[Rfam]
RNA sequence: GGGGACGACAGGCUUCGACGUGGUCGGUUCCGUAGGGAUGGUCGCGAGCCGAGGUCCCGGAGGCCUCGUAAAACACCGGGAAAACCAUACGUGCGGACUCUCACGAGUACGCCCUCGCUGCUUAGUCUCUGACUAGGUGAGUGAGGUUCCGCCCCACGCCUGCCGGCCGCGGGGUGUGCGGAAUCAGAAUGCCGGCUCACCCGGGGAGGUCCGCUCCUGCCGAACCGGGGACAUCUUCAGGGAGCUGGUCACCCGGACCCCUGUCGGCGCGGCUACCGGGUGACGAGAUCAGAGCGCCGACUACGCUCGUAGACGCCUCCACUGCGCGAUCGCGGACGCGGGUUCAAUUCCCGCCGUCUCCACCU
Numbered sequence: 001g002g003g004g005a006c007g008a009c010a011g012g013c014u015u016c017g018a019c020g021u022g023g024u025c026g027g028u029u030c031c032g033u034a035g036g037g038a039u040g041g042u043c044g045c046g047a048g049c050c051g052a053g054g055u056c057c058c059g060g061a062g063g064c065c066u067c068g069u070a071a072a073a074c075a076c077c078g079g080g081a082a083a084a085c086c087a088u089a090c091g092u093g094c095g096g097a098c099u100c101u102c103a104c105g106a107g108u109a110c111g112c113c114c115u116c117g118c119u120g121c122u123u124a125g126u127c128u129c130u131g132a133c134u135a136g137g138u139g140a141g142u143g144a145g146g147u148u149c150c151g152c153c154c155c156a157c158g159c160c161u162g163c164c165g166g167c168c169g170c171g172g173g174g175u176g177u178g179c180g181g182a183a184u185c186a187g188a189a190u191g192c193c194g195g196c197u198c199a200c201c202c203g204g205g206g207a208g209g210u211c212c213g214c215u216c217c218u219g220c221c222g223a224a225c226c227g228g229g230g231a232c233a234u235c236u237u238c239a240g241g242g243a244g245c246u247g248g249u250c251a252c253c254c255g256g257a258c259c260c261c262u263g264u265c266g267g268c269g270c271g272g273c274u275a276c277c278g279g280g281u282g283a284c285g286a287g288a289u290c291a292g293a294g295c296g297c298c299g300a301c302u303a304c305g306c307u308c309g310u311a312g313a314c315g316c317c318u319c320c321a322c323u324g325c326g327c328g329a330u331c332g333c334g335g336a337c338g339c340g341g342g343u344u345c346a347a348u349u350c351c352c353g354c355c356g357u358c359u360c361c362a363c364c365u
Stems, first nucleotide, its partner, number of pairs: 001361007019334008032323001035320001040317003045309005050068005055081006115144005147183006154174002157171003162196006200229005208221001213246001215244001217242002248284009260272002263301004268296003338354005
A member of the RNA family "transfer-messenger RNA" from Baekduia soli, 365 nucleotides long. Gene Ontology term of the family: RNA catabolic process. Rfam's curators write: Bacterial tmRNA, also known as 10Sa RNA or SsrA, is named for its dual tRNA and mRNA-like properties. Its role is to liberate the mRNA from a stalled ribosome. To accomplish this part of the tmRNA is used as a reading frame that ends in a translation stop signal. The broken mRNA is replaced in the ribosome by the tmRNA and translation of the tmRNA leads to addition of a proteolysis tag to the incomplete protein enabling recognition by a protease.